[Rfam]
RNA sequence: UCACGGACUACAUACUUCUUUACAUUCCAUAGUUUUCAUUAUUCUGUAUGGCGAUGCAAAGAAGUACGUUGCCAUCGU
Numbered sequence: 001u002c003a004c005g006g007a008c009u010a011c012a013u014a015c016u017u018c019u020u021u022a023c024a025u026u027c028c029a030u031a032g033u034u035u036u037c038a039u040u041a042u043u044c045u046g047u048a049u050g051g052c053g054a055u056g057c058a059a060a061g062a063a064g065u066a067c068g069u070u071g072c073c074a075u076c077g078u
Base pairs, nucleotide, nucleotide: 008071010069011068013066014065015064016063017062018061019060020059021058023056024055025054027051028050029049030048031047
Shown here is a 78-nucleotide RNA sequence from Wuchereria bancrofti, a member of the family "mir-1 microRNA precursor family".
A reference for the family is Lee and Ambros (2001), "An extensive class of small RNAs in Caenorhabditis elegans", Science.
Rfam 15.1 lists 4,474 matches to the family in 965 species.
Pairs were carried over by alignment from the consensus structure, which was predicted with RNAalifold.